[Rfam]
Record summary
The record is a 67-nucleotide RNA from Mesocricetus auratus, which matches "mir-484 microRNA precursor family" in Rfam. The literature on the family includes a 2010 paper in Mol Hum Reprod by Ahn et al., "MicroRNA transcriptome in the newborn mouse ovaries determined by massive parallel sequencing". Rfam 15.1 lists 128 matches to the family in 128 species. Rfam links the family to the GO terms RISC complex and miRNA-mediated post-transcriptional gene silencing.
RNA sequence: UCGUCAGGCUCAGUCCCCUCCCGAUAAACCUCCAAAUGGGGGGUCUCCCCGGGGGGCGCCUCCGCUU
Numbered sequence: 001u002c003g004u005c006a007g008g009c010u011c012a013g014u015c016c017c018c019u020c021c022c023g024a025u026a027a028a029c030c031u032c033c034a035a036a037u038g039g040g041g042g043g044u045c046u047c048c049c050c051g052g053g054g055g056g057c058g059c060c061u062c063c064g065c066u067u
Stems, first nucleotide, its partner, number of pairs: 003065002007061002011058001013057007023047002027044001030041004